[Rfam]
RNA sequence: GGUGCCGGUUGUCUUAUCGCUGACCCGAACUGGGUUGGAGGAAAGUCCGGACAGCGCAGAGCACCAUACUUCCUAACGGGAAGGCAGGCGGCUGGGAACGGCCGUCUGACAGCCAGUGUCACAGAAAAUAUACCGCCAGAAAACAGUUUACAGUUUUCUGUUUAUAGCUUGCAGUUCCGCGAAGCAGUCUUGCCUGCGUAAGCCAACUAUAAACUGUAAACAACAAACUGUAAACUGUUUUCGGGUAAGGGUGAAAAGGUGGGGUAAGGGCCUACCGCCCGGCGGGUGACCGACGGGGCAGGAUAAACCUUAUGGGCUGAAAGACCAAAUAUGCGGCAGAUUAGGGGCGGCUCGUUCCUGUAGGUUGGCUUCGGCUGGCCGAUGCUGUCGCGGGUAGGUCGAUAGAGGUCGUCGGUGACGGCGAUCCCAGAUAAAUGAUAAGACCCGGUGCGUCGGUUUUACCGAUAAUCCAGUGACAGAAUCCGGCUUAUAGGCCGGUAUUGCUC
Numbered sequence: 001g002g003u004g005c006c007g008g009u010u011g012u013c014u015u016a017u018c019g020c021u022g023a024c025c026c027g028a029a030c031u032g033g034g035u036u037g038g039a040g041g042a043a044a045g046u047c048c049g050g051a052c053a054g055c056g057c058a059g060a061g062c063a064c065c066a067u068a069c070u071u072c073c074u075a076a077c078g079g080g081a082a083g084g085c086a087g088g089c090g091g092c093u094g095g096g097a098a099c100g101g102c103c104g105u106c107u108g109a110c111a112g113c114c115a116g117u118g119u120c121a122c123a124g125a126a127a128a129u130a131u132a133c134c135g136c137c138a139g140a141a142a143a144c145a146g147u148u149u150a151c152a153g154u155u156u157u158c159u160g161u162u163u164a165u166a167g168c169u170u171g172c173a174g175u176u177c178c179g180c181g182a183a184g185c186a187g188u189c190u191u192g193c194c195u196g197c198g199u200a201a202g203c204c205a206a207c208u209a210u211a212a213a214c215u216g217u218a219a220a221c222a223a224c225a226a227a228c229u230g231u232a233a234a235c236u237g238u239u240u241u242c243g244g245g246u247a248a249g250g251g252u253g254a255a256a257a258g259g260u261g262g263g264g265u266a267a268g269g270g271c272c273u274a275c276c277g278c279c280c281g282g283c284g285g286g287u288g289a290c291c292g293a294c295g296g297g298g299c300a301g302g303a304u305a306a307a308c309c310u311u312a313u314g315g316g317c318u319g320a321a322a323g324a325c326c327a328a329a330u331a332u333g334c335g336g337c338a339g340a341u342u343a344g345g346g347g348c349g350g351c352u353c354g355u356u357c358c359u360g361u362a363g364g365u366u367g368g369c370u371u372c373g374g375c376u377g378g379c380c381g382a383u384g385c386u387g388u389c390g391c392g393g394g395u396a397g398g399u400c401g402a403u404a405g406a407g408g409u410c411g412u413c414g415g416u417g418a419c420g421g422c423g424a425u426c427c428c429a430g431a432u433a434a435a436u437g438a439u440a441a442g443a444c445c446c447g448g449u450g451c452g453u454c455g456g457u458u459u460u461a462c463c464g465a466u467a468a469u470c471c472a473g474u475g476a477c478a479g480a481a482u483c484c485g486g487c488u489u490a491u492a493g494g495c496c497g498g499u500a501u502u503g504c505u506c
Stems, first nucleotide, its partner, number of pairs: 001502010011491001012443007020038008043489003047486005052319004060376001064315005069083005084110001085108010111310002116308002118304003133250002135246003139242018258276006277299001278297004283292003323400004333391006371382004407426008
The record is a 506-nucleotide RNA from Rudanella paleaurantiibacter, which matches "Bacterial RNase P class A" in Rfam.
The match comes from Rfam's covariance-model search (249 bits).
The family's RNA type in Rfam is ribozyme.